[Rfam]
RNA sequence: ACUCUUGGGGAGUAGCUACCCGCUGUUGCGGGGCCAUCGUCAACAUCCUUGAACCUUCCGGUUCGUGGCGAUGGCAGCAGAUUUUGAUCUGCCCGGCGAGACCAACGAUGCGCUACCUCUCUCGUGGCCGGAGGUGGAUUGCGUCGUUCGGUUGACGGCCCUUGGACGUAU
Numbered sequence: 001a002c003u004c005u006u007g008g009g010g011a012g013u014a015g016c017u018a019c020c021c022g023c024u025g026u027u028g029c030g031g032g033g034c035c036a037u038c039g040u041c042a043a044c045a046u047c048c049u050u051g052a053a054c055c056u057u058c059c060g061g062u063u064c065g066u067g068g069c070g071a072u073g074g075c076a077g078c079a080g081a082u083u084u085u086g087a088u089c090u091g092c093c094c095g096g097c098g099a100g101a102c103c104a105a106c107g108a109u110g111c112g113c114u115a116c117c118u119c120u121c122u123c124g125u126g127g128c129c130g131g132a133g134g135u136g137g138a139u140u141g142c143g144u145c146g147u148u149c150g151g152u153u154g155a156c157g158g159c160c161c162u163u164g165g166a167c168g169u170a171u
Stems, first nucleotide, its partner, number of pairs: 020031003033075010050065005081171002
The record is a 171-nucleotide RNA from Sphingomonas metalli, which matches "Manganese Mn2+ riboswitch aptamer (yybP-ykoY)" in Rfam.
Rfam's curators write: This RNA was originally discovered in E. coli during a large scale screen and was named SraF. The family was later found to exist upstream of related families of protein genes in many bacteria, including the the yybP and ykoK genes in B. subtilis. The specific functions of these proteins are unknown, but this structured RNA element may be involved in their genetic regulation as a riboswitch.